The record is a 246-nucleotide RNA from Clostridium homopropionicum, which matches "T-box leader" in Rfam. A search with the family's covariance model found it, with a score of 103 bits. By type it is a cis-regulatory leader. The organism belongs to Clostridium homopropionicum, within Bacteria.

[Rfam]
RNA sequence: GUGAAUGCAAUGACGAGAAGAGUAGGUUAUUUAAACUUUCAGAGAGAAAUCCUCCUAGCUGUAAGGGAUUUUAAGUAGGAAAUAACUGAAGUGCAUCUCAGAGCACUGAAUUGAAGCUUAGUAGACUUCAGCGGGUAUGCCCGUUAUAAAAUUGAGGUAUGAUUGUACCAAAAAUUUAAGAGUUAUCAUAUAAUUUUUAUAUGAUAAACAGAGUGGAACCGUGGAAGUUAAACUUCUGCCUCUGUA
Numbered sequence: 001g002u003g004a005a006u007g008c009a010a011u012g013a014c015g016a017g018a019a020g021a022g023u024a025g026g027u028u029a030u031u032u033a034a035a036c037u038u039u040c041a042g043a044g045a046g047a048a049a050u051c052c053u054c055c056u057a058g059c060u061g062u063a064a065g066g067g068a069u070u071u072u073a074a075g076u077a078g079g080a081a082a083u084a085a086c087u088g089a090a091g092u093g094c095a096u097c098u099c100a101g102a103g104c105a106c107u108g109a110a111u112u113g114a115a116g117c118u119u120a121g122u123a124g125a126c127u128u129c130a131g132c133g134g135g136u137a138u139g140c141c142c143g144u145u146a147u148a149a150a151a152u153u154g155a156g157g158u159a160u161g162a163u164u165g166u167a168c169c170a171a172a173a174a175u176u177u178a179a180g181a182g183u184u185a186u187c188a189u190a191u192a193a194u195u196u197u198u199a200u201a202u203g204a205u206a207a208a209c210a211g212a213g214u215g216g217a218a219c220c221g222u223g224g225a226a227g228u229u230a231a232a233c234u235u236c237u238g239c240c241u242c243u244g245u246a
Stems, first nucleotide, its partner, number of pairs: 007104002015099004025087006037075003048070006107130004111125002132143003185205007210243004221239007